This 86-nucleotide sequence belongs to the Rfam family "freshwater-2 RNA". Pairs were carried over by alignment from the consensus structure, which is taken from published work.
RNA sequence: CAACACAAUCCUGUGUUUUAUGCAGCGUUAACCCACUGCGUAGCGGCUAGAACCCGCAUAGGACUUCUAUUAGGAGAAAUCAAAUG
Number, nucleotide and partner (000 for none) at each position: 001c000002a017003a016004c015005a014006c013007a000008a000009u000010c000011c000012u000013g006014u005015g004016u003017u002018u000019u042020a041021u040022g039023c038024a037025g036026c000027g000028u000029u000030a000031a000032c000033c000034c000035a000036c025037u024038g023039c022040g021041u020042a019043g057044c056045g055046g054047c000048u000049a000050g000051a000052a000053c000054c046055c045056g044057c043058a000059u000060a000061g000062g000063a000064c000065u000066u000067c000068u000069a000070u000071u000072a000073g000074g000075a000076g000077a000078a000079a000080u000081c000082a000083a000084a000085u000086g000